[Rfam]
RNA: Small nucleolar RNA Z119
Organism: Brachypodium distachyon
RNA sequence: UCUUGGAGAUGAUGAUUAUCAGAGGCUGUUUCUGAGGAUGAGUCUAGAGCUCUCCCAAUGCUGCAAAUAACUGAGUUGCCUUGCUGAUCCAAAA
Number, nucleotide and partner (000 for none) at each position: 001u000002c000003u092004u091005g090006g089007a088008g000009a000010u000011g000012a000013u000014g000015a000016u000017u000018a000019u000020c000021a000022g000023a000024g000025g000026c000027u000028g000029u000030u000031u000032c000033u000034g000035a000036g000037g000038a000039u000040g052041a051042g050043u049044c000045u000046a000047g000048a000049g043050c042051u041052c040053u000054c000055c000056c000057a000058a000059u000060g000061c000062u000063g079064c078065a077066a076067a000068u000069a000070a000071c000072u000073g000074a000075g000076u066077u065078g064079c063080c000081u000082u000083g000084c000085u000086g000087a000088u007089c006090c005091a004092a003093a000094a000